A member of the RNA family "Eukaryotic large subunit ribosomal RNA" from Micromonas commoda, 478 nucleotides of a longer RNA. NCBI's taxonomy places the organism under Eukaryota, Viridiplantae, Chlorophyta, Mamiellales, Micromonas. The base pairs follow the family's consensus structure, which is taken from published work. Clan: LSU clan.
RNA sequence: UAGAAGAAUGUAGGUAAGGGAAGUCGGCAAAAUAGAUCCGUAACUUCGGGAAAAGGAUUGGCUCUGAGGGUUGGGUAUAGGGGUUUGCGUCACGACGCCCUUGGCGUUUCAGGGACUACUGAGCUCACGCAAGGUGGACCUUGAUGGUCCUUGGGUCGAGGGGCGCAAAAUAACUAUGCGACGAACAACCAACUCAGAACUGGUACGGACAAGGGGAAUCCGACUGUUUAAUUAAAACAAAGCAAAGUGAUGGUCGUAAAGCGAUGUUGACACUUUGUGAUUUCUGCCCAGUGCUCUGAAUGUCAAAGUGAAGAAAUUCAACCAAGCGCGGGUAAACGGCGGGAGUAACUAUGACUCUCUUAAGGUAGCCAAAUGCCUCGUCAUCUAAUUAGUGACGCGCAUGAAUGGAUUAACGAGAUUCCCACUGUCCCUAUCUACUAUCUAGCGAAACCACAGCCAAGGGAACGGGCUUGGAAGA
Number, nucleotide and partner (000 for none) at each position: 001u444002a443003g442004a441005a000006g000007a000008a000009u000010g438011u437012a436013g435014g434015u433016a432017a000018g430019g429020g428021a000022a000023g000024u000025c000026g000027g000028c000029a000030a000031a000032a000033u000034a000035g059036a058037u057038c056039c055040g000041u000042a000043a000044c049045u000046u000047c000048g000049g044050g000051a000052a000053a000054a000055g039056g038057a037058u036059u035060g201061g200062c000063u198064c197065u196066g195067a194068g193069g190070g189071u188072u187073g186074g000075g179076u178077a177078u176079a175080g174081g000082g000083g171084u169085u168086u167087g000088c165089g164090u163091c162092a000093c000094g000095a000096c000097g157098c000099c000100c000101u000102u000103g150104g149105c000106g000107u146108u000109u144110c143111a142112g141113g140114g139115a000116c137117u136118a135119c134120u133121g000122a000123g130124c129125u000126c000127a000128c000129g124130c123131a000132a000133g120134g119135u118136g117137g116138a000139c114140c113141u112142u111143g110144a109145u000146g107147g000148u000149c104150c103151u000152u000153g000154g000155g000156u000157c097158g000159a000160g000161g000162g091163g090164c089165g088166c000167a086168a085169a084170a000171u083172a000173a000174c080175u079176a078177u077178g076179c075180g000181a000182c000183g000184a000185a000186c073187a072188a071189c070190c069191a000192a000193c068194u067195c066196a065197g064198a063199a000200c061201u060202g206203g000204u000205a000206c202207g000208g000209a000210c000211a000212a000213g000214g423215g422216g421217a420218a419219u418220c417221c415222g414223a000224c000225u239226g238227u237228u000229u000230a000231a000232u000233u000234a000235a000236a000237a227238c226239a225240a000241a000242g278243c277244a276245a275246a274247g273248u272249g271250a000251u000252g000253g265254u264255c263256g262257u000258a000259a000260a000261g000262c256263g255264a254265u253266g000267u000268u000269g000270a000271c249272a248273c247274u246275u245276u244277g243278u242279g000280a000281u000282u409283u408284c407285u000286g340287c339288c338289c000290a000291g337292u336293g333294c332295u331296c330297u000298g329299a000300a000301u328302g327303u326304c000305a000306a000307a000308g000309u320310g319311a318312a317313g000314a000315a000316a000317u312318u311319c310320a309321a000322c000323c000324a000325a000326g303327c302328g301329c298330g296331g295332g294333u293334a000335a000336a292337c291338g288339g287340c286341g359342g358343g357344a356345g355346u354347a000348a000349c000350u000351a000352u000353g000354a346355c345356u344357c343358u342359c341360u364361u000362a000363a000364g360365g000366u000367a000368g000369c000370c000371a000372a000373a000374u000375g000376c000377c000378u000379c000380g396381u395382c394383a393384u392385c000386u000387a000388a000389u000390u000391a000392g384393u383394g382395a381396c380397g000398c000399g000400c000401a000402u000403g000404a000405a000406u000407g284408g283409a282410u000411u000412a000413a000414c222415g221416a000417g220418a219419u218420u217421c216422c215423c214424a000425c000426u000427g000428u020429c019430c018431c000432u016433a015434u014435c013436u012437a011438c010439u000440a000441u004442c003443u002444a001445g000446c000447g000448a000449a000450a000451c000452c000453a000454c000455a000456g000457c474458c473459a472460a471461g470462g000463g000464a000465a000466c000467g000468g000469g000470c461471u460472u459473g458474g457475a000476a000477g000478a000